[Rfam]
RNA sequence: AACCAUGGUAUCAAUGAAUGGAUUCAACUGUGAGAUGACGUGGUUGUUUCACCUAGAAUAAGAACGUGGCAUCCUAUUAAUUUCGUGCGAUGGCUGAUAAUAAUGUCACAUCCUUAUCCUAAGUGGAACAGCCACGUCAUAUCACGGGUGAAUCCAUUCAUUGAUAAUGUGGUU
Numbered sequence: 001a002a003c004c005a006u007g008g009u010a011u012c013a014a015u016g017a018a019u020g021g022a023u024u025c026a027a028c029u030g031u032g033a034g035a036u037g038a039c040g041u042g043g044u045u046g047u048u049u050c051a052c053c054u055a056g057a058a059u060a061a062g063a064a065c066g067u068g069g070c071a072u073c074c075u076a077u078u079a080a081u082u083u084c085g086u087g088c089g090a091u092g093g094c095u096g097a098u099a100a101u102a103a104u105g106u107c108a109c110a111u112c113c114u115u116a117u118c119c120u121a122a123g124u125g126g127a128a129c130a131g132c133c134a135c136g137u138c139a140u141a142u143c144a145c146g147g148g149u150g151a152a153u154c155c156a157u158u159c160a161u162u163g164a165u166a167a168u169g170u171g172g173u174u
Base pairs, nucleotide, nucleotide: 001174002173003172004171005170006169007168009166010165011164012163013162014161015160017158018157019156021154022153023152024151025150026149028147030145031144032143033142035140036139037138038137039136041134042133043132044131045130046129047128048127051124052123054121055120058117064111069106070105071104072103075102076101077100078099079098086097

The family of this 174-nucleotide RNA sequence from Oryza nivara is "MIR807 microRNA precursor family". A search with the family's covariance model found it, with a score of 141 bits. The literature on the family includes a 2006 paper in FEBS Lett by Luo et al., "Rice embryogenic calli express a unique set of microRNAs, suggesting regulatory roles of microRNAs in plant post-embryogenic development".